[Rfam]
Shown here is a 141-nucleotide RNA from Cnephaeus nilssonii, a member of the family "U4 spliceosomal RNA". By type it is a spliceosomal small nuclear RNA. A reference for the family is Vidovic et al. (2000), "Crystal structure of the spliceosomal 15.5kD protein bound to a U4 snRNA fragment", Mol Cell. The source organism's lineage runs through Eukaryota, Deuterostomia, Mammalia, Chiroptera and Cnephaeus. Rfam describes the family as follows. U4 small nuclear RNA (U4 snRNA) is a component of the major U2-dependent spliceosome.
RNA sequence: AGCUUUGCUUAGUGGCAGUAUCUUAGCCAAUGAGAUUUAUCUGAGGUGUGAUUAUUGCUAAUUGAAAACUUUUCCCAAUACCCCGCUGUGACGACUUGAAAUAUAGUCAGCACUGACAAUAUUUGACGGUCUCUACGGAGA
Numbered sequence: 001a002g003c004u005u006u007g008c009u010u011a012g013u014g015g016c017a018g019u020a021u022c023u024u025a026g027c028c029a030a031u032g033a034g035a036u037u038u039a040u041c042u043g044a045g046g047u048g049u050g051a052u053u054a055u056u057g058c059u060a061a062u063u064g065a066a067a068a069c070u071u072u073u074c075c076c077a078a079u080a081c082c083c084c085g086c087u088g089u090g091a092c093g094a095c096u097u098g099a100a101a102u103a104u105a106g107u108c109a110g111c112a113c114u115g116a117c118a119a120u121a122u123u124u125g126a127c128g129g130u131c132u133c134u135a136c137g138g139a140g141a
Stems, first nucleotide, its partner, number of pairs: 020052003024048001026047003034042001085117001087115001088113003093108004130141004